[Rfam]
The family of this 125-nucleotide RNA sequence from Papaver nudicaule is "Small nucleolar RNA SNORD14". It is annotated as a C/D-box small nucleolar RNA. The literature on the family includes a 1996 paper in Nucleic Acids Res by Samarsky et al., "An essential domain in Saccharomyces cerevisiae U14 snoRNA is absent in vertebrates, but conserved in other yeasts". NCBI's taxonomy places the organism under Eukaryota, Streptophytina, Spermatophyta, Mesangiospermae, Papaver. The family has 18 seed sequences and 4,559 matches in Rfam 15.1.

RNA sequence: UAUCGAUGAUGAUAAAACUAAGGCUUGUUUCUCAAGAACAUUCGCAGUUGCCGACUAACAGCUUUCGCCUUUCGCCGGGCUUGAGAUCUAAUGCUGGUUAAUUCCUUCCUUGGAUGUCUGAGACA
Numbered sequence: 001u002a003u004c005g006a007u008g009a010u011g012a013u014a015a016a017a018c019u020a021a022g023g024c025u026u027g028u029u030u031c032u033c034a035a036g037a038a039c040a041u042u043c044g045c046a047g048u049u050g051c052c053g054a055c056u057a058a059c060a061g062c063u064u065u066c067g068c069c070u071u072u073c074g075c076c077g078g079g080c081u082u083g084a085g086a087u088c089u090a091a092u093g094c095u096g097g098u099u100a101a102u103u104c105c106u107u108c109c110u111u112g113g114a115u116g117u118c119u120g121a122g123a124c125a
Stems, first nucleotide, its partner, number of pairs: 001125001003123002061088001063086004